[Rfam]
RNA: Molybdenum/Tungsten riboswitch aptamer (Moco RNA motif)
RNA sequence: CUUUAAAAAACUUUCCGAGCCUACCCUCCUAAGGCUUUAGCUAUGGAGGCUGGCCGAUAGGGUGCAAGCGGAAACGCUUGUGCCUCCCGUAUUUGGAAAGGAAGGUGGUUAUGCGUAAA
Numbered sequence: 001c002u003u004u005a006a007a008a009a010a011c012u013u014u015c016c017g018a019g020c021c022u023a024c025c026c027u028c029c030u031a032a033g034g035c036u037u038u039a040g041c042u043a044u045g046g047a048g049g050c051u052g053g054c055c056g057a058u059a060g061g062g063u064g065c066a067a068g069c070g071g072a073a074a075c076g077c078u079u080g081u082g083c084c085u086c087c088c089g090u091a092u093u094u095g096g097a098a099a100g101g102a103a104g105g106u107g108g109u110u111a112u113g114c115g116u117a118a119a
Stems, first nucleotide, its partner, number of pairs: 003113001006110001011105006019054003024049002027047003033042003060085011086096002